[Rfam]
RNA sequence: GGUCCGACACCGCCGAAUCGCUCGCGAGCGAACCGGGGAACCAGGUAACCCGGGGUGAAUCCGCAGCCACUGCGGUAGGGCGUCCCCUUCCCGCCCGAACCCGUCAGCUAACCCGGUAGGCGGUCUGGGAAGAAGGA
Dot-bracket structure: ..........((((...(((........)))((((((....(.........)(((.....((((.......))))..((((...........))))...))).........)))))).))))...............

Rfam assigns this 137-nucleotide RNA from Micromonospora echinaurantiaca to the family "c-di-AMP riboswitch aptamer (ydaO/yuaA leader)". The match comes from Rfam's covariance-model search (96 bits). The base pairs follow the family's consensus structure. Lineage of the source: Bacteria > Bacillati > Actinomycetes > Micromonosporaceae > Micromonospora.